[Rfam]
RNA sequence: UGGCCUAGGCUAGUAUUACCCUAGGCCACCUCUGUACCUUGUACCG
Numbered sequence: 001u002g003g004c005c006u007a008g009g010c011u012a013g014u015a016u017u018a019c020c021c022u023a024g025g026c027c028a029c030c031u032c033u034g035u036a037c038c039u040u041g042u043a044c045c046g
Stems, first nucleotide, its partner, number of pairs: 001028009
Dot-bracket structure: (((((((((..........)))))))))..................
RNA: ssNA-helicase RNA
Organism: Colidextribacter sp. OB.20